[Rfam]
RNA: terC RNA
Organism: Sphingomonas lenta
RNA sequence: GAGGCGGUCCGGGCCCCUCUGGCGGCGGUCGACCACCCCGCGAUGUCGAACCGCACGG
Number, nucleotide and partner (000 for none) at each position: 001g000002a000003g000004g000005c000006g052007g051008u050009c000010c048011g047012g046013g000014c000015c000016c000017c000018u000019c000020u000021g000022g041023c040024g039025g038026c000027g037028g036029u035030c000031g000032a000033c000034c000035a029036c028037c027038c025039c024040g023041c022042g000043a000044u000045g000046u012047c011048g010049a000050a008051c007052c006053g000054c000055a000056c000057g000058g000